mir-3015 microRNA precursor family: a 57-nucleotide RNA from Acyrthosiphon pisum.

[Rfam]
RNA sequence: AUUCUUACAAUAUCCGGUUAAAGUUAACCCACACUUAACCAGAUAUUGUAAGAACGG
Numbered sequence: 001a002u003u004c005u006u007a008c009a010a011u012a013u014c015c016g017g018u019u020a021a022a023g024u025u026a027a028c029c030c031a032c033a034c035u036u037a038a039c040c041a042g043a044u045a046u047u048g049u050a051a052g053a054a055c056g057g
Base pairs, nucleotide, nucleotide: 002054003053004052005051006050007049008048009047010046011045013043014042016040017039018038019037020036021035023032024031
Notes
Gene Ontology terms of the family: miRNA-mediated post-transcriptional gene silencing and RISC complex.